About this RNA: mir-87 microRNA precursor family: an 80-nucleotide RNA sequence from Drosophila gunungcola. The organism belongs to elegans subgroup (in: flies), within Eukaryota. For this family Rfam cites "Temporal regulation of microRNA expression in Drosophila melanogaster mediated by hormonal signals and broad-Complex gene activity" (Sempere et al., Dev Biol, 2003).

RNA sequence: CAUUCGCGCCUGUAUCUUGCUGAACCGUUUACCACAUUGGCCUUCGAUCCGGUUGAGCAAAAUUUCAGGUGUGUGAGAAA
Numbered sequence: 001c002a003u004u005c006g007c008g009c010c011u012g013u014a015u016c017u018u019g020c021u022g023a024a025c026c027g028u029u030u031a032c033c034a035c036a037u038u039g040g041c042c043u044u045c046g047a048u049c050c051g052g053u054u055g056a057g058c059a060a061a062a063u064u065u066c067a068g069g070u071g072u073g074u075g076a077g078a079a080a
Stems, first nucleotide, its partner, number of pairs: 003077004007071006014063002017060002020057002023054001025052003

The base pairs follow the family's consensus structure, which was predicted with RNAalifold. It scores 60 bits against the family's covariance model.